[Rfam]
Rfam assigns this 66-nucleotide sequence from Microcaecilia unicolor to the family "Small nucleolar RNA SNORD58". Clan: SNORD58 clan. snoRNA U58 is found in introns 1, 3 and 6 of the ribosomal protein RPL17 gene in humans.
RNA sequence: UGGCAAUGAUGACUGUGUUAGGACACCUUUGGAAUAACCAUGAAAAUACUCAUGUGUCUGAGCUAC
Number, nucleotide and partner (000 for none) at each position: 001u065002g064003g063004c062005a000006a000007u000008g000009a000010u000011g000012a000013c000014u000015g000016u000017g000018u000019u000020a000021g000022g000023a000024c000025a000026c000027c000028u000029u000030u000031g000032g000033a000034a000035u000036a000037a000038c000039c000040a000041u000042g000043a000044a000045a000046a000047u000048a000049c000050u000051c000052a000053u000054g000055u000056g000057u000058c000059u000060g000061a000062g004063c003064u002065a001066c000

Rfam links the family to the GO terms nucleolus and RNA processing.
The source organism's lineage runs through Eukaryota, Bilateria, Deuterostomia, Gymnophiona and Microcaecilia.
It scores 68 bits against the family's covariance model.
The family's RNA type in Rfam is C/D-box small nucleolar RNA.